[Rfam]
This 150-nucleotide RNA from Pipistrellus kuhlii belongs to the Rfam family "U12 minor spliceosomal RNA". It is annotated as a spliceosomal small nuclear RNA. The match comes from Rfam's covariance-model search (83 bits). On this family, see Tarn and Steitz, Trends Biochem Sci 1997: "Pre-mRNA splicing: the discovery of a new spliceosome doubles the challenge". Its family is annotated with pre-mRNA branch point binding, U12 snRNP and mRNA branch site recognition in the Gene Ontology.

Nucleotides: 150
Stems, first nucleotide, its partner, number of pairs: 004023005033052007054070005086150002091147001093145002100136002106130001109124005
Number, partner (000 for none) and nucleotide at each position: 001000a002000u003000g004023c005022c006021u007020u008019a009000a010000a011000c012000u013000u014000a015000u016000g017000a018000c019008u020007a021006a022005g023004g024000a025000a026000a027000a028000u029000a030000a031000c032000a033052a034051u035050u036049u037048g038047g039046g040000g041000u042000g043000a044000a045000g046039c047038c048037u049036g050035a051034a052033u053000c054070c055069u056068c057067a058066c059000u060000g061000c062000u063000a064000a065000u066058g067057u068056g069055a070054g071000a072000c073000a074000a075000a076000u077000u078000u079000u080000u081000g082000a083000g084000u085000g086150a087149g088000u089000a090000a091147a092000g093145g094144u095000a096000a097000c098000c099000c100136c101135u102000a103000a104000g105000g106130u107000g108000a109124c110123c111122c112121a113120c114000u115000a116000c117000u118000u119000u120113g121112u122111g123110g124109g125000g126000g127000a128000a129000a130106a131000a132000g133000a134000a135101a136100g137000a138000a139000a140000a141000u142000c143000a144094a145093u146000a147091u148000u149087c150086u